[Rfam]
RNA sequence: ACACGGGAGAGGAGGUGGUCCAGAAAUUGCAUACGUUCAGGACUCGUGAGGUGGCUGUCCGCUAGCCGCCGUCCAGAUGGGCCGCCCGCUCUGCACCCGGUCGAAGACCGACCGCGUCGCUGAGCGAGAGGCAUCCCGCCCGUCCGUCGACCCGGCGGCUGGCGAGAACCGGACAGUCACCCGACCCCCGAGCCGCCGACCGUGUCCAGUCGGCCCGCCCGCAGCUCCCCACCCACCGUGGGUGAGAACCGGCGGAACAGCUCGGGGGUUGUCCGUU
Numbered sequence: 001a002c003a004c005g006g007g008a009g010a011g012g013a014g015g016u017g018g019u020c021c022a023g024a025a026a027u028u029g030c031a032u033a034c035g036u037u038c039a040g041g042a043c044u045c046g047u048g049a050g051g052u053g054g055c056u057g058u059c060c061g062c063u064a065g066c067c068g069c070c071g072u073c074c075a076g077a078u079g080g081g082c083c084g085c086c087c088g089c090u091c092u093g094c095a096c097c098c099g100g101u102c103g104a105a106g107a108c109c110g111a112c113c114g115c116g117u118c119g120c121u122g123a124g125c126g127a128g129a130g131g132c133a134u135c136c137c138g139c140c141c142g143u144c145c146g147u148c149g150a151c152c153c154g155g156c157g158g159c160u161g162g163c164g165a166g167a168a169c170c171g172g173a174c175a176g177u178c179a180c181c182c183g184a185c186c187c188c189c190g191a192g193c194c195g196c197c198g199a200c201c202g203u204g205u206c207c208a209g210u211c212g213g214c215c216c217g218c219c220c221g222c223a224g225c226u227c228c229c230c231a232c233c234c235a236c237c238g239u240g241g242g243u244g245a246g247a248a249c250c251g252g253c254g255g256a257a258c259a260g261c262u263c264g265g266g267g268g269u270u271g272u273c274c275g276u277u
Base pairs, nucleotide, nucleotide: 014059015058016057017056018055019054060164061163062162063161064160065159066158068156069155070154071153182271183270184269185268186267187266188265189264190263191262192261193260195214196213197212198211199210200209
Rfam assigns this 277-nucleotide sequence from Goekera deserti to the family "Actinobacteria sRNA Ms_IGR-5". By type it is a small RNA. It scores 79 bits against the family's covariance model. Pairs were carried over by alignment from the consensus structure.